[Rfam]
RNA: Purine riboswitch aptamer
Organism: Gemella morbillorum
RNA sequence: UAUUAAUAGAAUAAAUAUGCACAUAUAACUGCAAGAAUAUGGCUUGCGAGUUUCUACCGUUUAACCGUAAAUUUAACGACUAUGGGCUUUCUUAGUAUUUUA
Numbered sequence: 001u002a003u004u005a006a007u008a009g010a011a012u013a014a015a016u017a018u019g020c021a022c023a024u025a026u027a028a029c030u031g032c033a034a035g036a037a038u039a040u041g042g043c044u045u046g047c048g049a050g051u052u053u054c055u056a057c058c059g060u061u062u063a064a065c066c067g068u069a070a071a072u073u074u075a076a077c078g079a080c081u082a083u084g085g086g087c088u089u090u091c092u093u094a095g096u097a098u099u100u101u102a
Base pairs, nucleotide, nucleotide: 019087020086022084023083024082025081030048031047032046033045034044035043058078059077060076061075063073064072